[Rfam]
RNA sequence: UGAUCCGGGACGUCAAAGGCUUUGAAGAACCAGGGAAACAACCCCACCCCACCCCACCCGGCGACGGUGAUCACCCUCGGGAGGGGCGUCACUCGGACGGGUGAGCUUCGCCAACUGAGCUGGAUUUUGCCCCGGUUGCCAGGCAUAUGCUCACGCCACCAACCACCCGACAUGCGUCGGCCCCCGACCGGGACCACAAUCCCGAUCGAGGGCCUGACCACCGAGGAAGUUCGGAGCUUCCCG
Numbered sequence: 001u002g003a004u005c006c007g008g009g010a011c012g013u014c015a016a017a018g019g020c021u022u023u024g025a026a027g028a029a030c031c032a033g034g035g036a037a038a039c040a041a042c043c044c045c046a047c048c049c050c051a052c053c054c055c056a057c058c059c060g061g062c063g064a065c066g067g068u069g070a071u072c073a074c075c076c077u078c079g080g081g082a083g084g085g086g087c088g089u090c091a092c093u094c095g096g097a098c099g100g101g102u103g104a105g106c107u108u109c110g111c112c113a114a115c116u117g118a119g120c121u122g123g124a125u126u127u128u129g130c131c132c133c134g135g136u137u138g139c140c141a142g143g144c145a146u147a148u149g150c151u152c153a154c155g156c157c158a159c160c161a162a163c164c165a166c167c168c169g170a171c172a173u174g175c176g177u178c179g180g181c182c183c184c185c186g187a188c189c190g191g192g193a194c195c196a197c198a199a200u201c202c203c204g205a206u207c208g209a210g211g212g213c214c215u216g217a218c219c220a221c222c223g224a225g226g227a228a229g230u231u232c233g234g235a236g237c238u239u240c241c242c243g
Base pairs, nucleotide, nucleotide: 001220002219007076008075009074089104090103091102092101093100094099119154121153122152123151179214180213181212182211183210185208186207190203191202192201193200225241226240227239228238229237